RNA sequence: UGUAACGGGGCAAGGCUUGACCGAGGGGACUAUAACAUGUAUAGGCGUCAAGCGGGGCUUCGGUUGUACGCGGAUAGGAAUCCCCUCAGG
Numbered sequence: 001u002g003u004a005a006c007g008g009g010g011c012a013a014g015g016c017u018u019g020a021c022c023g024a025g026g027g028g029a030c031u032a033u034a035a036c037a038u039g040u041a042u043a044g045g046c047g048u049c050a051a052g053c054g055g056g057g058c059u060u061c062g063g064u065u066g067u068a069c070g071c072g073g074a075u076a077g078g079a080a081u082c083c084c085c086u087c088a089g090g
Stems, first nucleotide, its partner, number of pairs: 001012003023087007031079001042076002046072002052067004
Rfam assigns this 90-nucleotide RNA from Alpharetrovirus avirousar to the family "Retrovirus direct repeat 1 (dr1)". It is one of the family's seed sequences. On this family, see Aschoff et al., J Virol 1999: "Point mutations in the avian sarcoma/leukosis virus 3' untranslated region result in a packaging defect". Pairs were carried over by alignment from the consensus structure, which is taken from published work. The family has 26 seed sequences and 106 matches in Rfam 15.1. The organism belongs to Alpharetrovirus avirousar, within Viruses.